Rfam assigns this 87-nucleotide sequence from Roseovarius gaetbuli to the family "Glycine riboswitch aptamer".

Nucleotides: 087
Stems, first nucleotide, its partner, number of pairs: 007081001010078004020033004035067003038063002042061003048055002
Number, partner (000 for none) and nucleotide at each position: 001000c002000a003000a004000g005000c006000u007081g008000a009000g010078g011077c012076a013075g014000g015000a016000g017000a018000g019000a020033u021032c022031g023030g024000c025000c026000g027000u028000g029000g030023c031022c032021g033020a034000c035067g036066c037065c038063g039062a040000a041000g042061g043060a044059g045000c046000a047000a048055c049054c050000c051000c052000c053000c054049g055048g056000a057000a058000c059044c060043u061042c062039u063038c064000a065037g066036g067035c068000a069000a070000a071000a072000g073000g074000a075013c076012u077011g078010c079000a080000a081007u082000c083000a084000g085000c086000g087000c

The base pairs follow the family's consensus structure. Rfam links the family to the GO term glycine biosynthetic process.